[Rfam]
RNA sequence: GGCAGCCUGGCGGGGAAACCGUUACCAUUACUGUGUUUAGUAAUGGUAAGGGUUCUCCCGCUGCGCUGAGU
Numbered sequence: 001g002g003c004a005g006c007c008u009g010g011c012g013g014g015g016a017a018a019c020c021g022u023u024a025c026c027a028u029u030a031c032u033g034u035g036u037u038u039a040g041u042a043a044u045g046g047u048a049a050g051g052g053u054u055c056u057c058c059c060g061c062u063g064c065g066c067u068g069a070g071u
Stems, first nucleotide, its partner, number of pairs: 008063002011060003017054004022049012